Shown here is a 96-nucleotide sequence from Pseudarcicella hirudinis, a member of the family "SAM riboswitch aptamer (S box leader)". Gene Ontology term of the family: regulation of gene expression. From the family's description: The SAM riboswitch is found upstream of a number of genes which code for proteins involved in methionine or cysteine biosynthesis in Gram-positive bacteria. NCBI's taxonomy places the organism under Bacteria, Pseudomonadati, Bacteroidota, Cytophagia, Pseudarcicella. The family's consensus secondary structure is taken from published work. The match comes from Rfam's covariance-model search (56 bits).
RNA sequence: GAUUUAUAAAGAAGAAGGGAGAGAUUAGGCUCUGUGAACUUCUGACAACCUGUUAACCACCAACAAGGUGUCCCAACCUAAAUCUGACGAUAAAUC
Numbered sequence: 001g002a003u004u005u006a007u008a009a010a011g012a013a014g015a016a017g018g019g020a021g022a023g024a025u026u027a028g029g030c031u032c033u034g035u036g037a038a039c040u041u042c043u044g045a046c047a048a049c050c051u052g053u054u055a056a057c058c059a060c061c062a063a064c065a066a067g068g069u070g071u072c073c074c075a076a077c078c079u080a081a082a083u084c085u086g087a088c089g090a091u092a093a094a095u096c
Base pairs, nucleotide, nucleotide: 001096002095003094004093005092006091007090013043014042015041016040017039021032022031023030026080027079028078029077044072045071046070047069049068050067051065052064053063054062